[Rfam]
RNA: mir-622 microRNA precursor family
RNA sequence: CAAAUACUUACCUCGGCAGAUUGAGGAGAGCACCACAGUGGUCACCACACAGUCUGCCAAGGUUGGAGUUGC
Number, nucleotide and partner (000 for none) at each position: 001c000002a000003a070004a069005u068006a000007c066008u065009u000010a063011c062012c061013u060014c000015g058016g057017c056018a055019g054020a053021u052022u051023g050024a000025g046026g045027a000028g043029a042030g000031c040032a039033c038034c000035a000036c000037a000038g033039u032040g031041g000042u029043c028044a000045c026046c025047a000048c000049a000050c023051a022052g021053u020054c019055u018056g017057c016058c015059a000060a013061g012062g011063u010064u000065g008066g007067a000068g005069u004070u003071g000072c000